[Rfam]
RNA sequence: AAGGAACUGCACGACUGGCGGAAAAGCAGACACAGUCUGUGGUAGGGCGACCUACAGGGAGUGCAGAAGUAAAAGAAUUGCCGACCGCCUGGGCGCAUUGC
Numbered sequence: 001a002a003g004g005a006a007c008u009g010c011a012c013g014a015c016u017g018g019c020g021g022a023a024a025a026g027c028a029g030a031c032a033c034a035g036u037c038u039g040u041g042g043u044a045g046g047g048c049g050a051c052c053u054a055c056a057g058g059g060a061g062u063g064c065a066g067a068a069g070u071a072a073a074a075g076a077a078u079u080g081c082c083g084a085c086c087g088c089c090u091g092g093g094c095g096c097a098u099u100g101c
Stems, first nucleotide, its partner, number of pairs: 003070001007066006015058002017089005042055004079095004
This 101-nucleotide RNA sequence from Clostridiaceae bacterium OM08-6BH belongs to the Rfam family "ZMP/ZTP riboswitch aptamer (pfl RNA motif)". It scores 53 bits against the family's covariance model. Gene Ontology terms of the family: one-carbon metabolic process and regulation of purine nucleotide biosynthetic process. The base pairs follow the family's consensus structure, which is taken from published work. The organism belongs to Clostridiaceae, within Bacteria.